[Rfam]
RNA sequence: UUGCAAGUUCAGGGAUAUAGCAAAAGCGUUCAUGGUGUGGGCCUCCCAGAUUCUAGUGAAUCUGCAAAUUCUGCU
Numbered sequence: 001u002u003g004c005a006a007g008u009u010c011a012g013g014g015a016u017a018u019a020g021c022a023a024a025a026g027c028g029u030u031c032a033u034g035g036u037g038u039g040g041g042c043c044u045c046c047c048a049g050a051u052u053c054u055a056g057u058g059a060a061u062c063u064g065c066a067a068a069u070u071c072u073g074c075u
Stems, first nucleotide, its partner, number of pairs: 013043002016039001019075004024070002026038003047064007
Mammalian CPEB3 ribozyme: a 75-nucleotide RNA from Alligator mississippiensis. The match comes from Rfam's covariance-model search (43 bits).